[Rfam]
RNA sequence: GUGGGAAGCGCACGGCCGCAAAUCCGACUCGCUGUCCACCCUUUCGGGCAGCUUGGGAUUGCGGAAGUGC
Numbered sequence: 001g002u003g004g005g006a007a008g009c010g011c012a013c014g015g016c017c018g019c020a021a022a023u024c025c026g027a028c029u030c031g032c033u034g035u036c037c038a039c040c041c042u043u044u045c046g047g048g049c050a051g052c053u054u055g056g057g058a059u060u061g062c063g064g065a066a067g068u069g070c
Stems, first nucleotide, its partner, number of pairs: 010070004016064006024057002031052007
Rfam assigns this 70-nucleotide RNA from Natronococcus amylolyticus to the family "S15-Halobacteria ribosomal protein leader".